[Rfam]
RNA: Leucine operon leader
RNA sequence: UUGCAGGUGAUGUCAUAUACCCGUCGUCUAUCAGGUCUACUACUCGAUGCCUUAACUGUGCGCGGUAGACUUGUGGGUGAUAUUACUGAGUAAUCCAAACCUGCAAAAGAUCUAAAAACCCGCGCCAUGUCGCGGGUUUUUUU
Number, nucleotide and partner (000 for none) at each position: 001u000002u000003g000004c000005a000006g101007g100008u099009g000010a000011u093012g000013u000014c090015a000016u088017a087018u000019a000020c000021c000022c000023g000024u080025c079026g078027u077028c076029u075030a074031u073032c000033a071034g000035g000036u000037c000038u000039a000040c068041u067042a066043c065044u064045c000046g000047a000048u062049g061050c060051c000052u000053u000054a000055a000056c000057u000058g000059u000060g050061c049062g048063c000064g044065g043066u042067a041068g040069a000070c000071u033072u000073g031074u030075g029076g028077g027078u026079g025080a024081u000082a000083u000084u000085a000086c000087u017088g016089a000090g014091u000092a000093a011094u000095c000096c000097a000098a000099a008100c007101c006102u000103g000104c000105a000106a000107a000108a000109g000110a000111u000112c000113u000114a000115a140116a139117a138118a137119c136120c135121c134122g133123c132124g131125c000126c000127a000128u000129g000130u000131c124132g123133c122134g121135g120136g119137u118138u117139u116140u115141u000142u000143u000